[Rfam]
RNA sequence: ACAACGGCUCUUUUAAGAGCCACACAUGUUAACUGAGAGUUUAACG
Numbered sequence: 001a002c003a004a005c006g007g008c009u010c011u012u013u014u015a016a017g018a019g020c021c022a023c024a025c026a027u028g029u030u031a032a033c034u035g036a037g038a039g040u041u042u043a044a045c046g
Stems, first nucleotide, its partner, number of pairs: 006021006